The family of this 105-nucleotide RNA sequence from Vulpes vulpes is "mir-8834 microRNA precursor family".
Pairs were carried over by alignment from the consensus structure, which was predicted with RNAalifold.

RNA sequence: UGGAGGAACAAGCCCGGUGGCGGCGGCCAGCUCUGGAGCCCUGGAGUCAGCUCCAGCAGUAACUCUGAGCUCUCUGACUUCAGGGCCUGGAGGCACCGGGGUGGG
Numbered sequence: 001u002g003g004a005g006g007a008a009c010a011a012g013c014c015c016g017g018u019g020g021c022g023g024c025g026g027c028c029a030g031c032u033c034u035g036g037a038g039c040c041c042u043g044g045a046g047u048c049a050g051c052u053c054c055a056g057c058a059g060u061a062a063c064u065c066u067g068a069g070c071u072c073u074c075u076g077a078c079u080u081c082a083g084g085g086c087c088u089g090g091a092g093g094c095a096c097c098g099g100g101g102u103g104g105g
Base pairs, nucleotide, nucleotide: 002097003096005094009089010088013084014083019078021076022075023074025073026072029071030070031069032068033067035066036065037064041059042058043057